A member of the RNA family "raiA RNA" from Clostridium sp. N3C, 205 nucleotides long. NCBI's taxonomy places the organism under Bacteria, Bacillati, Bacillota, Clostridia, Clostridium.

RNA sequence: AAAAGUUAGGUUUGUGAUUGAAAGUCGAUGCCAGUCGCAGGCGAAACGACCCACGUAAGUUAAACAAAUGUUUAAUGAUCAUGGUGCGGCUUAGAUGUUAGUCCUGCCGUCUUAUGACGAGAGGGUUAGUAGUGAGAGGUAAGUUCCGGGUAGCGAAAGCUCCAGCAGGCGGGUGUGGGGGCAAAGAUCAGGUCAACUAACUUUU
Numbered sequence: 001a002a003a004a005g006u007u008a009g010g011u012u013u014g015u016g017a018u019u020g021a022a023a024g025u026c027g028a029u030g031c032c033a034g035u036c037g038c039a040g041g042c043g044a045a046a047c048g049a050c051c052c053a054c055g056u057a058a059g060u061u062a063a064a065c066a067a068a069u070g071u072u073u074a075a076u077g078a079u080c081a082u083g084g085u086g087c088g089g090c091u092u093a094g095a096u097g098u099u100a101g102u103c104c105u106g107c108c109g110u111c112u113u114a115u116g117a118c119g120a121g122a123g124g125g126u127u128a129g130u131a132g133u134g135a136g137a138g139g140u141a142a143g144u145u146c147c148g149g150g151u152a153g154c155g156a157a158a159g160c161u162c163c164a165g166c167a168g169g170c171g172g173g174u175g176u177g178g179g180g181g182c183a184a185a186g187a188u189c190a191g192g193u194c195a196a197c198u199a200a201c202u203u204u205u
Stems, first nucleotide, its partner, number of pairs: 001205009012196003015190005028176003031041001033091007050084002055079001058076001060074001062072002082183001103169005108119004123162004132154002138147002
A search with the family's covariance model found it, with a score of 197 bits. It is annotated as a riboswitch.